[Rfam]
RNA sequence: CGUCCUCAGCCUUACUCCAGGGCCUUUGCUGUGAAGUGCCUUGGCAUUGCCUGAGGAUACAUGAGAAAGCACAUCUCCCUCCCCAGCAAGACGCUGCUUUCUUGUGGGGCCUACAGACUGUGCUGACAAC
Numbered sequence: 001c002g003u004c005c006u007c008a009g010c011c012u013u014a015c016u017c018c019a020g021g022g023c024c025u026u027u028g029c030u031g032u033g034a035a036g037u038g039c040c041u042u043g044g045c046a047u048u049g050c051c052u053g054a055g056g057a058u059a060c061a062u063g064a065g066a067a068a069g070c071a072c073a074u075c076u077c078c079c080u081c082c083c084c085a086g087c088a089a090g091a092c093g094c095u096g097c098u099u100u101c102u103u104g105u106g107g108g109g110c111c112u113a114c115a116g117a118c119u120g121u122g123c124u125g126a127c128a129a130c
Stems, first nucleotide, its partner, number of pairs: 003057007011049001017044006024036004068124003072120002081109005088103004
This 130-nucleotide sequence from Cavia porcellus belongs to the Rfam family "Small nucleolar RNA SNORA49". Pairs were carried over by alignment from the consensus structure, which was predicted with RNAalifold. The snoRNA ACA49 has no identified RNA target. NB genomic sequence 1-nt different from published. It is one of the family's seed sequences. NCBI's taxonomy places the organism under Eukaryota, Eumetazoa, Craniata, Mammalia, Cavia.